This 145-nucleotide sequence from [Phormidium ambiguum] IAM M-71 belongs to the Rfam family "Guanidine-I riboswitch aptamer". Gene Ontology term of the family: regulation of gene expression. About the family: This family represents a conserved RNA structure found upstream of the ykkC and yxkD genes in Bacillus subtilis and related genes in other bacteria. The function of this family is unclear although it has been suggested that it may function to switch on efflux pumps and detoxification systems in response to harmful environmental molecules. The source organism's lineage runs through Bacteria, Cyanobacteriota, Oscillatoriophycideae, Aerosakkonematales and Floridanema. The match comes from Rfam's covariance-model search (66 bits).
RNA sequence: AUUAAUAGCUUCUAGGGUUCCGGUUUGGAUUUAAAAAACGAGAAAGUUUUGCCAAAUGCUGGUCCGAGAGAAGCAGCUGGCAAACUUCAAAGUUUAUUUUUGGAUAGAUUAGCUAGCCACACGGCGGGGGAAAAGCCCGGGAGAA
Dot-bracket structure: .......(((((..((...(((((((((.......................)))))).).)).))....))))).((((((..............................))))))..(.[...(((.......))).)..]..